[Rfam]
RNA sequence: UCGCGAACAACGACACAGGCAUACGGGGGCAGGGACGGGGGACCCAGAUUCGGUCCCAUGGAACGCCGCUCGCGGCGAACCGAUGAGGACCUUGGGGUGAAGCCACCAUCGGUGGCCGGGCAACCUUCCCGCCCGAACCCGACAGCUAACCUCGCAGGCGUGCCGGAGGGAUUUC
Numbered sequence: 001u002c003g004c005g006a007a008c009a010a011c012g013a014c015a016c017a018g019g020c021a022u023a024c025g026g027g028g029g030c031a032g033g034g035a036c037g038g039g040g041g042a043c044c045c046a047g048a049u050u051c052g053g054u055c056c057c058a059u060g061g062a063a064c065g066c067c068g069c070u071c072g073c074g075g076c077g078a079a080c081c082g083a084u085g086a087g088g089a090c091c092u093u094g095g096g097g098u099g100a101a102g103c104c105a106c107c108a109u110c111g112g113u114g115g116c117c118g119g120g121c122a123a124c125c126u127u128c129c130c131g132c133c134c135g136a137a138c139c140c141g142a143c144a145g146c147u148a149a150c151c152u153c154g155c156a157g158g159c160g161u162g163c164c165g166g167a168g169g170g171a172u173u174u175c
Stems, first nucleotide, its partner, number of pairs: 001033002036154005045094002095140003103115004118134004